A member of the RNA family "Small nucleolar RNA SNORD2" from Acipenser ruthenus, 70 nucleotides long. It scores 72 bits against the family's covariance model. The organism belongs to Acipenser, within Eukaryota. It is annotated as a C/D-box small nucleolar RNA.

[Rfam]
RNA sequence: GAGUGAAAUGAUGCUUUACCAUCUUUCGGGACUGACCUAAAAUGGAGACAGCCUUUUCAACUGAUCACUC
Numbered sequence: 001g002a003g004u005g006a007a008a009u010g011a012u013g014c015u016u017u018a019c020c021a022u023c024u025u026u027c028g029g030g031a032c033u034g035a036c037c038u039a040a041a042a043u044g045g046a047g048a049c050a051g052c053c054u055u056u057u058c059a060a061c062u063g064a065u066c067a068c069u070c
Stems, first nucleotide, its partner, number of pairs: 001070006